[Rfam]
RNA sequence: CUGCUGGCUGUAGAUCAGUGGCUCCUUCAACUACAAAGUGAUUCAAUUACCUUUCGAGGGUGGUUCAAGACACACGGGCGCUCUCCAGUCCUUUU
Numbered sequence: 001c002u003g004c005u006g007g008c009u010g011u012a013g014a015u016c017a018g019u020g021g022c023u024c025c026u027u028c029a030a031c032u033a034c035a036a037a038g039u040g041a042u043u044c045a046a047u048u049a050c051c052u053u054u055c056g057a058g059g060g061u062g063g064u065u066c067a068a069g070a071c072a073c074a075c076g077g078g079c080g081c082u083c084u085c086c087a088g089u090c091c092u093u094u095u
Base pairs, nucleotide, nucleotide: 003089004088005087006086007085013079015077016076018075019074020073026069027068030065

Rfam assigns this 95-nucleotide RNA from Bos grunniens to the family "Vault RNA". A search with the family's covariance model found it, with a score of 43 bits. Rfam's curators write: This family of RNAs are found as part of the enigmatic vault ribonucleoprotein complex. By type it is a non-coding RNA gene. Lineage of the source: Eukaryota > Bilateria > Gnathostomata > Theria > Bos. For this family Rfam cites "Evolution of Vault RNAs" (Stadler et al., Mol Biol Evol, 2009).